The record is a 77-nucleotide RNA from Crocodylus porosus, which matches "Mammalian CPEB3 ribozyme" in Rfam. Taxonomically the source falls in Crocodylus (Eukaryota, Bilateria, Tetrapoda, Sauria). On this family, see Salehi-Ashtiani et al., Science 2006: "A genomewide search for ribozymes reveals an HDV-like sequence in the human CPEB3 gene". A search with the family's covariance model found it, with a score of 37 bits.
[Rfam]
RNA sequence: AGUCACAAGUUUGAGGCCGCAACAGAAGCACUUACAGCAUGGACCUGUCAGAUUCCAAUGAAUCUGCAAAUUCUGCU
Numbered sequence: 001a002g003u004c005a006c007a008a009g010u011u012u013g014a015g016g017c018c019g020c021a022a023c024a025g026a027a028g029c030a031c032u033u034a035c036a037g038c039a040u041g042g043a044c045c046u047g048u049c050a051g052a053u054u055c056c057a058a059u060g061a062a063u064c065u066g067c068a069a070a071u072u073c074u075g076c077u
Stems, first nucleotide, its partner, number of pairs: 013045001015044001017042002021077001023075005028040001049066007